The record is a 76-nucleotide RNA sequence from Rubellimicrobium mesophilum, which matches "Proteo-phage-1 RNA" in Rfam. The base pairs follow the family's consensus structure, which is taken from published work. It scores 45 bits against the family's covariance model. NCBI's taxonomy places the organism under Bacteria, Pseudomonadati, Rhodobacterales, Roseobacteraceae, Rubellimicrobium mesophilum.
RNA sequence: ACGUGGCUCGCGCCUUUGGCGCGUUGCGAGAGCGGAUCAGCCGGAGAGUGCCGCGCAUGGAAAAACCCCGGCCGUC
Number, nucleotide and partner (000 for none) at each position: 001a000002c000003g000004u000005g000006g000007c030008u029009c028010g027011c026012g020013c019014c018015u000016u000017u000018g014019g013020c012021g000022c000023g000024u000025u000026g011027c010028g009029a008030g007031a000032g054033c053034g052035g051036a000037u000038c000039a000040g072041c071042c070043g069044g068045a000046g000047a000048g000049u000050g000051c035052c034053g033054c032055g000056c000057a000058u000059g000060g000061a000062a000063a000064a000065a000066c000067c000068c044069c043070g042071g041072c040073c000074g000075u000076c000